A member of the RNA family "rdlD antitoxin" from Salmonella enterica, 66 nucleotides long. Gene Ontology terms of the family: mRNA binding and negative regulation of translation. The family has 52 seed sequences and 86 matches in Rfam 15.1. On this family, see Kawano et al., Mol Microbiol 2002: "Molecular characterization of long direct repeat (LDR) sequences expressing a stable mRNA encoding for a 35-amino-acid cell-killing peptide and a cis-encoded small antisense RNA in Escherichia coli".
RNA sequence: GUUUGGGUUCAAGUUAGCCCCCGUCAGGUUGCCAGGUUUAUACCAGUCAACGUGCGGGGGUUUUCU
Numbered sequence: 001g002u003u004u005g006g007g008u009u010c011a012a013g014u015u016a017g018c019c020c021c022c023g024u025c026a027g028g029u030u031g032c033c034a035g036g037u038u039u040a041u042a043c044c045a046g047u048c049a050a051c052g053u054g055c056g057g058g059g060g061u062u063u064u065c066u
Stems, first nucleotide, its partner, number of pairs: 016062009028051004035043001